Rfam assigns this 243-nucleotide RNA sequence from Streptomyces pseudogriseolus to the family "Streptomyces sRNA 4677".
The literature on the family includes a 2014 paper in PLoS One by Hindra et al., "Complex intra-operonic dynamics mediated by a small RNA in Streptomyces coelicolor".
About the family: Located in the intergenic region between anti-sigma factor SCO4677 gene and a putative regulatory protein gene SCO4676. scr4677 expression requires the SCO4677 activity and scr4677 sRNA itself seem to affect the levels of the SCO4676-associated transcripts.
The family's RNA type in Rfam is small RNA.
Pairs were carried over by alignment from the consensus structure.
RNA sequence: CGGGCCGUAAAAAGACUUAAGUACCUAGGGUAAAUACCAACCAAACCAGACCAAACCUCGCGUUGAUCACUCGGCCGGGUGAAACGCGUCGAACUGGCUGGCGCGGCGGUGGUGCGGGCGGGCACUCUCAGCUCAGAGGGCCGGGCAACUCGGCGCUCCCCCACACCCGUACAGACGUCGGCCCCCGCCGGGACUUGCACUCCCGGACGAGGGCCUGACCAAAGAGGAAGCAGACCCUUCCCC
Numbered sequence: 001c002g003g004g005c006c007g008u009a010a011a012a013a014g015a016c017u018u019a020a021g022u023a024c025c026u027a028g029g030g031u032a033a034a035u036a037c038c039a040a041c042c043a044a045a046c047c048a049g050a051c052c053a054a055a056c057c058u059c060g061c062g063u064u065g066a067u068c069a070c071u072c073g074g075c076c077g078g079g080u081g082a083a084a085c086g087c088g089u090c091g092a093a094c095u096g097g098c099u100g101g102c103g104c105g106g107c108g109g110u111g112g113u114g115c116g117g118g119c120g121g122g123c124a125c126u127c128u129c130a131g132c133u134c135a136g137a138g139g140g141c142c143g144g145g146c147a148a149c150u151c152g153g154c155g156c157u158c159c160c161c162c163a164c165a166c167c168c169g170u171a172c173a174g175a176c177g178u179c180g181g182c183c184c185c186c187g188c189c190g191g192g193a194c195u196u197g198c199a200c201u202c203c204c205g206g207a208c209g210a211g212g213g214c215c216u217g218a219c220c221a222a223a224g225a226g227g228a229a230g231c232a233g234a235c236c237c238u239u240c241c242c243c
Stems, first nucleotide, its partner, number of pairs: 001060004067082006097154005180215005186209002190204004226241005